[Rfam]
Nucleotides: 169
Base pairs, nucleotide, nucleotide: 002085004084005083007080008079009078014071015070016069017068019064020063021062022061023060024059025058095122148164149163150162151161152160153159
Number, partner (000 for none) and nucleotide at each position: 001000c002085u003000c004084g005083u006000u007080g008079c009078a010000u011000c012000c013000u014071c015070g016069c017068g018000a019064c020063u021062a022061a023060u024059g025058a026000c027000a028000a029000c030000c031000c032000u033000u034000a035000a036000c037000c038000g039000c040000c041000c042000c043000u044000g045000c046000g047000g048000u049000a050000a051000a052000a053000g054000c055000c056000u057000c058025u059024c060023a061022u062021u063020a064019g065000c066000c067000g068017c069016g070015c071014g072000a073000a074000c075000c076000u077000c078009u079008g080007c081000a082000a083005a084004c085002a086000a087000a088000g089000a090000u091000c092000a093000c094000a095122c096000c097000c098000a099000a100000c101000a102000a103000c104000a105000a106000u107000a108000c109000a110000u111000g112000a113000g114000u115000u116000u117000g118000c119000u120000c121000a122095g123000g124000a125000u126000u127000g128000c129000u130000g131000c132000g133000c134000a135000u136000u137000g138000c139000u140000c141000g142000a143000a144000a145000a146000a147000a148164g149163g150162g151161g152160c153159c154000a155000u156000a157000a158000a159153g160152g161151c162150c163149c164148c165000c166000u167000u168000u169000u

Rfam assigns this 169-nucleotide sequence from Pantoea ananatis to the family "SraG RNA". Rfam describes the family as follows. This RNA was discovered in E. coli during a large scale screen. Evidence was found for specific cleavage of this RNA. The match comes from Rfam's covariance-model search (126 bits). For this family Rfam cites "Novel small RNA-encoding genes in the intergenic regions of Escherichia coli" (Argaman et al., Curr Biol, 2001). Gene Ontology terms of the family: mRNA binding and sRNA-mediated gene silencing.